[Rfam]
RNA: glmS glucosamine-6-phosphate activated ribozyme aptamer
Organism: Laceyella tengchongensis
RNA sequence: UUAUGUUGUCAAGCGCCAGGACUGUGGCAUGGACGUAGCGCCGCAGUUGACGAGGUGGAGGCAUAUCGAAUUUUCGGCGGAUACCUCCCGGCUUCGCAUCAGAGCCGCGGAACUGAGGGACAAACCAAUGGGGUGACUCAUUGUACAAAACUCUCGGUAUGAUGCGUG
Dot-bracket structure: ...................((((((((.............))))))))........(((((....((((....))))......)))))((((((.......))))))....(((((((.......(((((((....)))))))........)))))))..........
Numbered sequence: 001u002u003a004u005g006u007u008g009u010c011a012a013g014c015g016c017c018a019g020g021a022c023u024g025u026g027g028c029a030u031g032g033a034c035g036u037a038g039c040g041c042c043g044c045a046g047u048u049g050a051c052g053a054g055g056u057g058g059a060g061g062c063a064u065a066u067c068g069a070a071u072u073u074u075c076g077g078c079g080g081a082u083a084c085c086u087c088c089c090g091g092c093u094u095c096g097c098a099u100c101a102g103a104g105c106c107g108c109g110g111a112a113c114u115g116a117g118g119g120a121c122a123a124a125c126c127a128a129u130g131g132g133g134u135g136a137c138u139c140a141u142u143g144u145a146c147a148a149a150a151c152u153c154u155c156g157g158u159a160u161g162a163u164g165c166g167u168g
Stems, first nucleotide, its partner, number of pairs: 020048008057088005066077004089107006112158007126143007